[Rfam]
RNA sequence: UUUGGAUUAAUGAUGUCAAAUAAUACACGCUGUCUGUCUGCUCUUUCUUGGAAAGAUUUGAUGACAAUUUCGUGAUUCUGAAAUCCAAA
Numbered sequence: 001u002u003u004g005g006a007u008u009a010a011u012g013a014u015g016u017c018a019a020a021u022a023a024u025a026c027a028c029g030c031u032g033u034c035u036g037u038c039u040g041c042u043c044u045u046u047c048u049u050g051g052a053a054a055g056a057u058u059u060g061a062u063g064a065c066a067a068u069u070u071c072g073u074g075a076u077u078c079u080g081a082a083a084u085c086c087a088a089a
Stems, first nucleotide, its partner, number of pairs: 001089007

Shown here is an 89-nucleotide RNA, a member of the family "Small nucleolar RNA snoR27".
Rfam 15.1 lists 649 matches to the family in 212 species.
The literature on the family includes a 2001 paper in RNA by Brown et al., "Multiple snoRNA gene clusters from Arabidopsis".
Its family is annotated with nucleolus and RNA processing in the Gene Ontology.
The family is grouped with related families in Rfam's "snR68 clan".